[Rfam]
RNA sequence: GCGGAAGUGGCGAAAUUGGUAGACGCACCGGAUUUAGGUUCCGGCGCUUGUGCGUGUGGGUUCAAGUCCCUCCUUCCGCA
Numbered sequence: 001g002c003g004g005a006a007g008u009g010g011c012g013a014a015a016u017u018g019g020u021a022g023a024c025g026c027a028c029c030g031g032a033u034u035u036a037g038g039u040u041c042c043g044g045c046g047c048u049u050g051u052g053c054g055u056g057u058g059g060g061u062u063c064a065a066g067u068c069c070c071u072c073c074u075u076c077c078g079c080a
Stems, first nucleotide, its partner, number of pairs: 001079007010026003028044005056072001058070003

Rfam assigns this 80-nucleotide sequence from Actinobacillus succinogenes to the family "tRNA". On this family, see Hou, Trends Biochem Sci 1993: "The tertiary structure of tRNA and the development of the genetic code". The match comes from Rfam's covariance-model search (56 bits). Rfam describes the family as follows. Transfer RNA (tRNA) molecules are approximately 80 nucleotides in length. Their secondary structure includes four short double-helical elements and three loops (D, anti-codon, and T loops). Further hydrogen bonds mediate the characteristic L-shaped molecular structure. tRNAs have two regions of fundamental functional importance: the anti-codon, which is responsible for specific mRNA codon recognition, and the 3' end, to which the tRNAs corresponding amino acid is attached (by aminoacyl-tRNA synthetases). tRNAs cope with the degeneracy of the genetic code in two manners: having more than one tRNA (with a specific anti-codon) for a particular amino acid; and 'wobble' base-pairing, i.e. permitting non-standard base-pairing at the 3rd anti-codon position.